[Rfam]
RNA sequence: GGUUCCUGACGGGAACGUUCGUAUAGUACGAGAGGAACUACGAAUGGGUGCCACUGGUGUACCGGCUGUUCGAAAGAGCACGUGCCGGGCAGCCACGCACCACGGGGUAAGAGCUGAACGCAUCUAAGCUCGAAACCCACCUGGAAACGAGGAACCACCGAGGCCACUCCUACAAGAGGAGAUCGAUAGACUCGGGGUGUACGCGCCAAGGCAACGAGGCGUUGAGCCCGCGAGCACUAAUCGGCCAAG
Dot-bracket structure: (((((((..((((..((((((((...............))))))))(((((...(((....((((((((((....)))))...)))))....))).)))))..(((....(((((...........)))))....))).))))......))))))).....((((.((((.......)))).....(((.(((((((.....(((((..(....)..)))))....))).))))..)))...))))...